[Rfam]
RNA sequence: GUGAGCUAGGAAGAGGAAUAAAUAGUCUAAGAGCAUUGAGAAUGGGAACAUAGAGGAAACCAUGAGCUAUCCAUCUACGCCUCUAGAAUCAGAGGUGGAUAUCUAUCUUAGUGUUCCCCCAUGCCUCCCAUUCCUACUGUUCUUAGGUUGUCCUUCCCCUUCCUUUUACCU
Numbered sequence: 001g002u003g004a005g006c007u008a009g010g011a012a013g014a015g016g017a018a019u020a021a022a023u024a025g026u027c028u029a030a031g032a033g034c035a036u037u038g039a040g041a042a043u044g045g046g047a048a049c050a051u052a053g054a055g056g057a058a059a060c061c062a063u064g065a066g067c068u069a070u071c072c073a074u075c076u077a078c079g080c081c082u083c084u085a086g087a088a089u090c091a092g093a094g095g096u097g098g099a100u101a102u103c104u105a106u107c108u109u110a111g112u113g114u115u116c117c118c119c120c121a122u123g124c125c126u127c128c129c130a131u132u133c134c135u136a137c138u139g140u141u142c143u144u145a146g147g148u149u150g151u152c153c154u155u156c157c158c159c160u161u162c163c164u165u166u167u168a169c170c171u
Stems, first nucleotide, its partner, number of pairs: 009162003013158001015156003022151002026147010037136002040133008049123003053119001055118002058115003
A member of the RNA family "MIR2118 microRNA precursor family" from Triticum aestivum, 171 nucleotides long.